[Rfam]
RNA: Small nucleolar RNA SNORD16
Organism: Anguilla anguilla
RNA sequence: UGCUGUGAUGGUGUAAUUUGCGUCUGACCCUGCGCACAGUGACAGUUGCCUGCUGUCUCCAUGCUGGCGCAGGUGGUUGAUGAACAUUCAGGUCUGAGCA
Numbered sequence: 001u002g003c004u005g006u007g008a009u010g011g012u013g014u015a016a017u018u019u020g021c022g023u024c025u026g027a028c029c030c031u032g033c034g035c036a037c038a039g040u041g042a043c044a045g046u047u048g049c050c051u052g053c054u055g056u057c058u059c060c061a062u063g064c065u066g067g068c069g070c071a072g073g074u075g076g077u078u079g080a081u082g083a084a085c086a087u088u089c090a091g092g093u094c095u096g097a098g099c100a
Stems, first nucleotide, its partner, number of pairs: 001100003021082004030072005039064002041057005